[Rfam]
RNA sequence: UUCCACAGCUACUGGUGUGCAGCUAGCUGUUCUUAUGGAGGCAGUUAAGGCAUUCCUCUGUGAGGAAAAAAUUGUUACAUGAUUAAACACCUCUUUCUUAGCAAAACAGAAAGUGGGCAUAUGUGUGACAAACAGAA
Numbered sequence: 001u002u003c004c005a006c007a008g009c010u011a012c013u014g015g016u017g018u019g020c021a022g023c024u025a026g027c028u029g030u031u032c033u034u035a036u037g038g039a040g041g042c043a044g045u046u047a048a049g050g051c052a053u054u055c056c057u058c059u060g061u062g063a064g065g066a067a068a069a070a071a072u073u074g075u076u077a078c079a080u081g082a083u084u085a086a087a088c089a090c091c092u093c094u095u096u097c098u099u100a101g102c103a104a105a106a107c108a109g110a111a112a113g114u115g116g117g118c119a120u121a122u123g124u125g126u127g128a129c130a131a132a133c134a135g136a137a
Base pairs, nucleotide, nucleotide: 004062005061006060023050024047025046026045027044028043029042077126078125079124080123081122090117091116092115093113094112095111096110097109098108
RNA: Small nucleolar RNA SNORA41